[Rfam]
RNA sequence: AUAGGGUCUCACUUUAUUGCCCAGGCUGGUCUCAAACUCCUGGUCUAGGCAACAAAGUGAGACCUUAU
Numbered sequence: 001a002u003a004g005g006g007u008c009u010c011a012c013u014u015u016a017u018u019g020c021c022c023a024g025g026c027u028g029g030u031c032u033c034a035a036a037c038u039c040c041u042g043g044u045c046u047a048g049g050c051a052a053c054a055a056a057g058u059g060a061g062a063c064c065u066u067a068u
Stems, first nucleotide, its partner, number of pairs: 007062008019050003023046003032043003

mir-1285 microRNA precursor family: a 68-nucleotide RNA from Pongo pygmaeus. The base pairs follow the family's consensus structure, which was predicted with RNAalifold. It is one of the family's seed sequences. Rfam 15.1 lists 264 matches to the family in 27 species.